[Rfam]
RNA sequence: AGGAAAGGCCUUUCAGGCAUCCUCUCCUAUAAACUUUCCGGGCUGGCGCUUGCGCUGGCCCUUUUUUUGUUCCGUG
Number, nucleotide and partner (000 for none) at each position: 001a000002g000003g000004a000005a000006a000007g000008g018009c017010c016011u015012u000013u000014c000015a011016g010017g009018c008019a000020u000021c000022c000023u000024c000025u000026c000027c000028u000029a000030u000031a000032a000033a000034c000035u000036u000037u000038c000039c000040g061041g060042g059043c058044u057045g056046g055047c054048g053049c000050u000051u000052g000053c048054g047055c046056u045057g044058g043059c042060c041061c040062u000063u000064u000065u000066u000067u000068u000069g000070u000071u000072c000073c000074g000075u000076g000
Makes More Granules Regulator RNA (mmgR): a 76-nucleotide sequence from Sphingobium yanoikuyae. Rfam describes the family as follows. SuhB later renamed mmgR (makes more granules regulator) was a putative non-coding RNA found multiple times in the Agrobacterium tumefaciens genome and related alpha-proteobacteria. A search with the family's covariance model found it, with a score of 47 bits. A reference for the family is Corbino et al. (2005), "Evidence for a second class of S-adenosylmethionine riboswitches and other regulatory RNA motifs in alpha-proteobacteria", Genome Biol.